[Rfam]
RNA: mir-92 microRNA precursor family
RNA sequence: UGUCCUAUCCAGGUGGGGAUCGGUGGCAAUGCUGUUGUUCUGUAGGUAUUGCACUUGUCCCGGCCUGUAAAGGAACU
Numbered sequence: 001u002g003u004c005c006u007a008u009c010c011a012g013g014u015g016g017g018g019a020u021c022g023g024u025g026g027c028a029a030u031g032c033u034g035u036u037g038u039u040c041u042g043u044a045g046g047u048a049u050u051g052c053a054c055u056u057g058u059c060c061c062g063g064c065c066u067g068u069a070a071a072g073g074a075a076c077u
Base pairs, nucleotide, nucleotide: 004073005072006071010067011066012065013064014063016061017060018059019058020057022055023054024053026052027051028050029049030048031047032046033045